Shown here is a 165-nucleotide RNA from Sodalis ligni, a member of the family "SraG RNA". The family's consensus secondary structure was predicted with PFOLD. Taxonomically the source falls in Sodalis (Bacteria, Pseudomonadota, Gammaproteobacteria, Bruguierivoracaceae). The match comes from Rfam's covariance-model search (131 bits).

[Rfam]
RNA sequence: CUUCCUAUUGCAUCCUCGCGACUAAUGACAAUCCUUAUCCCCCUGGAUAAAGCCUCUCAUUAGCCGCGCGAAUCUCAGCAAUUGAAGAAUCUUCAUCAGCAACAACACAUUACCUUGAACGGUUAUCGCUGCCUAGAAGAAAGGGGCCGCAUAAGGCCCCUUUCU
Numbered sequence: 001c002u003u004c005c006u007a008u009u010g011c012a013u014c015c016u017c018g019c020g021a022c023u024a025a026u027g028a029c030a031a032u033c034c035u036u037a038u039c040c041c042c043c044u045g046g047a048u049a050a051a052g053c054c055u056c057u058c059a060u061u062a063g064c065c066g067c068g069c070g071a072a073u074c075u076c077a078g079c080a081a082u083u084g085a086a087g088a089a090u091c092u093u094c095a096u097c098a099g100c101a102a103c104a105a106c107a108c109a110u111u112a113c114c115u116u117g118a119a120c121g122g123u124u125a126u127c128g129c130u131g132c133c134u135a136g137a138a139g140a141a142a143g144g145g146g147c148c149g150c151a152u153a154a155g156g157c158c159c160c161u162u163u164c165u
Stems, first nucleotide, its partner, number of pairs: 001087004007082001010079002017070004022063007093118002143160006

About the family: This RNA was discovered in E. coli during a large scale screen. Evidence was found for specific cleavage of this RNA.